[Rfam]
Background
Rfam assigns this 78-nucleotide RNA sequence to the family "c-di-GMP-I riboswitch aptamer".
RNA sequence: AAAUGAGCAAGGCAAAUCUAGCAAGCUAGAAACGCAAAGCUUAUCAAGCUAGCAACGCAAAGCUAGGAAGUUAUCAAC
Numbered sequence: 001a002a003a004u005g006a007g008c009a010a011g012g013c014a015a016a017u018c019u020a021g022c023a024a025g026c027u028a029g030a031a032a033c034g035c036a037a038a039g040c041u042u043a044u045c046a047a048g049c050u051a052g053c054a055a056c057g058c059a060a061a062g063c064u065a066g067g068a069a070g071u072u073a074u075c076a077a078c
Stems, first nucleotide, its partner, number of pairs: 012035002017030005038072004047064003052058002